RNA sequence: CGCGAAAACGCACCGCGGCAGGAGCGGGGGAACCAGGUAAGCCGCUCCGGCACCCGGUCUUAGGACCGAGUGAUCGGAGCUAGGGGUGAAGCCGCGCAGCGCGCGGCCGGGCAACUCCAGUCCGAAUCCGACAGCUCACCUCGUAGGCGUAGGAGAGGAACG
Numbered sequence: 001c002g003c004g005a006a007a008a009c010g011c012a013c014c015g016c017g018g019c020a021g022g023a024g025c026g027g028g029g030g031a032a033c034c035a036g037g038u039a040a041g042c043c044g045c046u047c048c049g050g051c052a053c054c055c056g057g058u059c060u061u062a063g064g065a066c067c068g069a070g071u072g073a074u075c076g077g078a079g080c081u082a083g084g085g086g087u088g089a090a091g092c093c094g095c096g097c098a099g100c101g102c103g104c105g106g107c108c109g110g111g112c113a114a115c116u117c118c119a120g121u122c123c124g125a126a127u128c129c130g131a132c133a134g135c136u137c138a139c140c141u142c143g144u145a146g147g148c149g150u151a152g153g154a155g156a157g158g159a160a161c162g
Stems, first nucleotide, its partner, number of pairs: 001149003009022001024144006034083001084129003092106004109123004
A member of the RNA family "c-di-AMP riboswitch aptamer (ydaO/yuaA leader)" from Kitasatospora kifunensis, 162 nucleotides long. This family represents a conserved RNA structure found upstream of the ydaO and yuaA genes in Bacillus subtilis and related genes in other bacteria. Its family is annotated with cyclic-di-AMP binding and regulation of gene expression in the Gene Ontology. The pairing is the family consensus, mapped onto this sequence. A search with the family's covariance model found it, with a score of 55 bits.